[Rfam]
RNA: Plastid-ccsA-ndhD-1 3UTR RNA
Organism: Protea cynaroides
Nucleotides: 052
Base pairs, nucleotide, nucleotide: 007049009047010046011045012044013043014042015041016040017039018038019037020036021035022034023033
Number, partner (000 for none) and nucleotide at each position: 001000g002000a003000a004000u005000g006000u007049u008000g009047g010046a011045g012044a013043a014042c015041c016040a017039u018038u019037u020036g021035a022034a023033u024000c025000a026000a027000g028000u029000a030000g031000c032000a033023a034022u035021u036020c037019a038018a039017a040016u041015g042014g043013u044012u045011c046010u047009c048000a049007a050000a051000a052000a